[Rfam]
RNA sequence: UGUUCCUCUCAUUGCUUUUGAGUUUUGGCAGUGGGUUCACAGAUCAAAUCUGGUCUUUUCUUCACUCAGGGCACCAUUGGAUGGAUUGACCAUCCAUUAGUGCUUUCUGAAUUUUUCGGGGCCAGACAUUU
Dot-bracket structure: .......((((.((((..........)))).))))................((((((........(((((((((....(((((.......)))))....))))..))))).......))))))........
Numbered sequence: 001u002g003u004u005c006c007u008c009u010c011a012u013u014g015c016u017u018u019u020g021a022g023u024u025u026u027g028g029c030a031g032u033g034g035g036u037u038c039a040c041a042g043a044u045c046a047a048a049u050c051u052g053g054u055c056u057u058u059u060c061u062u063c064a065c066u067c068a069g070g071g072c073a074c075c076a077u078u079g080g081a082u083g084g085a086u087u088g089a090c091c092a093u094c095c096a097u098u099a100g101u102g103c104u105u106u107c108u109g110a111a112u113u114u115u116u117c118g119g120g121g122c123c124a125g126a127c128a129u130u131u
Stems, first nucleotide, its partner, number of pairs: 008035004013030004052123006066110005071103004079095005
Rfam assigns this 131-nucleotide RNA from Monodelphis domestica to the family "Small nucleolar RNA SNORA79".
Taxonomically the source falls in Monodelphis (Eukaryota, Opisthokonta, Deuterostomia, Didelphimorphia).
Rfam describes the family as follows. ACA65 (SNORA79) is a member of the H/ACA class of snoRNAs that guide the sites of modification of uridines to pseudouridines. This snoRNA was identified by computational screening and its expression in mouse experimentally verified by Northern blot and primer extension analysis.
The family's RNA type in Rfam is H/ACA-box small nucleolar RNA.